Overview: The record is a 96-nucleotide RNA sequence from Lactuca sativa, which matches "Small nucleolar RNA R11/Z151" in Rfam.
[Rfam]
RNA sequence: AGGGUUAUGAUGAUAUACUUUUAAUAUCUUAGCGGAUUUCCGUGAGAUUAAAAUAUAUUUUGAUCUAUGAUCUUAUUGUUACACACACUGAAUCCU
Numbered sequence: 001a002g003g004g005u006u007a008u009g010a011u012g013a014u015a016u017a018c019u020u021u022u023a024a025u026a027u028c029u030u031a032g033c034g035g036a037u038u039u040c041c042g043u044g045a046g047a048u049u050a051a052a053a054u055a056u057a058u059u060u061u062g063a064u065c066u067a068u069g070a071u072c073u074u075a076u077u078g079u080u081a082c083a084c085a086c087a088c089u090g091a092a093u094c095c096u
Base pairs, nucleotide, nucleotide: 001096002095003094004093005092

Description:
The organism belongs to Lactuca, within Eukaryota. It scores 68 bits against the family's covariance model. Gene Ontology terms of the family: nucleolus and RNA processing. A reference for the family is Barneche et al. (2001), "Identification of 66 box C/D snoRNAs in Arabidopsis thaliana: extensive gene duplications generated multiple isoforms predicting new ribosomal RNA 2'-O-methylation sites", J Mol Biol. The base pairs follow the family's consensus structure, which was predicted with PFOLD.